[Rfam]
RNA sequence: CCUUAUAGGACCUGCAUUGUACACACUGUGCAUAUUGUUUGGGCAUGCACAGCGCAUACAAUGUGGAUGCUAUAGAA
Number, nucleotide and partner (000 for none) at each position: 001c000002c000003u000004u000005a000006u000007a000008g000009g000010a000011c000012c066013u065014g000015c063016a062017u061018u060019g059020u058021a057022c000023a000024c054025a000026c052027u051028g050029u049030g048031c047032a000033u000034a000035u000036u000037g000038u000039u000040u000041g000042g000043g000044c000045a000046u000047g031048c030049a029050c028051a027052g026053c000054g024055c000056a000057u021058a020059c019060a018061a017062u016063g015064u000065g013066g012067a000068u000069g000070c000071u000072a000073u000074a000075g000076a000077a000

The family of this 77-nucleotide sequence from Geotrypetes seraphini is "mir-460 microRNA precursor family".
Pairs were carried over by alignment from the consensus structure, which was predicted with RNAalifold.
Lineage of the source: Eukaryota > Eumetazoa > Dipnotetrapodomorpha > Dermophiidae > Geotrypetes.